[Rfam]
Background:
This 134-nucleotide RNA sequence from Neogobius melanostomus belongs to the Rfam family "Small nucleolar RNA SNORA8". From the family's description: ACA8 is a member of the H/ACA class of snoRNA that guide the sites of modification of uridines to pseudouridines. Taxonomically the source falls in Neogobius (Eukaryota, Chordata, Euteleostomi, Euteleosteomorpha). It scores 53 bits against the family's covariance model. It is annotated as an H/ACA-box small nucleolar RNA. The family's consensus secondary structure was predicted with RNAfold.
RNA sequence: AGCACUGCGUGGUAUCUGCAGCCAGUGGCGCCAUCUGCUGGUUUGUUCAUAAGCCAGUGCAAGAGAAAUUCAGCAUUUGGCAUCGUUGGUCUAUGCAGUGUGCGUAGAGUCCUGGUAAACUUGUUGAGACAGCU
Number, nucleotide and partner (000 for none) at each position: 001a000002g060003c059004a058005c057006u056007g055008c000009g000010u000011g000012g000013u000014a000015u053016c000017u051018g046019c045020a044021g043022c000023c041024a039025g038026u037027g036028g035029c000030g000031c000032c000033a000034u000035c028036u027037g026038c025039u024040g000041g023042u000043u021044u020045g019046u018047u000048c000049a000050u000051a017052a000053g015054c000055c007056a006057g005058u004059g003060c002061a000062a000063g000064a122065g121066a000067a000068a000069u117070u115071c114072a113073g112074c000075a000076u000077u000078u000079g000080g103081c102082a101083u100084c000085g000086u000087u000088g000089g000090u000091c000092u000093a000094u000095g000096c000097a000098g000099u000100g083101u082102g081103c080104g000105u000106a000107g000108a000109g000110u000111c000112c073113u072114g071115g070116u000117a069118a000119a000120c000121u065122u064123g000124u000125u000126g000127a000128g000129a000130c000131a000132g000133c000134u000